[Rfam]
RNA sequence: AUCGAAAAAUAGCCGAGUUCCGCUAUGCGGAAACGGGGGACCCACUAUCUUUGGGGUGAAUGGCUGCGCUCUCGCAGUCUAGGGCAUUCCUUUCGACCGAACCCUUCAGCUAACCUCGUAGGCUCAGGAGAGGAGCAGU
Numbered sequence: 001a002u003c004g005a006a007a008a009a010u011a012g013c014c015g016a017g018u019u020c021c022g023c024u025a026u027g028c029g030g031a032a033a034c035g036g037g038g039g040a041c042c043c044a045c046u047a048u049c050u051u052u053g054g055g056g057u058g059a060a061u062g063g064c065u066g067c068g069c070u071c072u073c074g075c076a077g078u079c080u081a082g083g084g085c086a087u088u089c090c091u092u093u094c095g096a097c098c099g100a101a102c103c104c105u106u107c108a109g110c111u112a113a114c115c116u117c118g119u120a121g122g123c124u125c126a127g128g129a130g131a132g133g134a135g136c137a138g139u
Stems, first nucleotide, its partner, number of pairs: 011124004018032003033119006043053002054104003062079004082098002085095001

The record is a 139-nucleotide RNA sequence from Brevibacillus borstelensis, which matches "c-di-AMP riboswitch aptamer (ydaO/yuaA leader)" in Rfam. A search with the family's covariance model found it, with a score of 90 bits. Rfam's curators write: This family represents a conserved RNA structure found upstream of the ydaO and yuaA genes in Bacillus subtilis and related genes in other bacteria. The ydaO/yuaA element is thought to act as a genetic 'off' switch for the ydaO and yuaA genes in its native state. It is believed that the element may be triggered during osmotic shock leading to activation of ydaO, a predicted amino acid transporter gene, and members of the yuaA-yubG operon which code for KtrA and KtrB K+ transporters. Taxonomically the source falls in Brevibacillus borstelensis (Bacteria, Bacillota, Caryophanales, Brevibacillus).